tpke11: a 77-nucleotide RNA from Proteus penneri. A reference for the family is Rivas et al. (2001), "Computational identification of noncoding RNAs in E. coli by comparative genomics", Curr Biol. Rfam's curators put it in the seed alignment. In Yersinia located in ICR upstream dnaJ (chaperone)gene. The organism belongs to Proteus penneri, within Bacteria. The family's consensus secondary structure was predicted with WAR.
[Rfam]
RNA sequence: AAUAGUUACUGAUACCGAACACGGGCGUCGAGGAAACUCAACGCCCGUGUGCUUAUGUCAAGGGUAAUCUAGAAUGG
Numbered sequence: 001a002a003u004a005g006u007u008a009c010u011g012a013u014a015c016c017g018a019a020c021a022c023g024g025g026c027g028u029c030g031a032g033g034a035a036a037c038u039c040a041a042c043g044c045c046c047g048u049g050u051g052c053u054u055a056u057g058u059c060a061a062g063g064g065u066a067a068u069c070u071a072g073a074a075u076g077g
Base pairs, nucleotide, nucleotide: 003018005016019050020049021048022047023046024045025044026043027042030039031038032037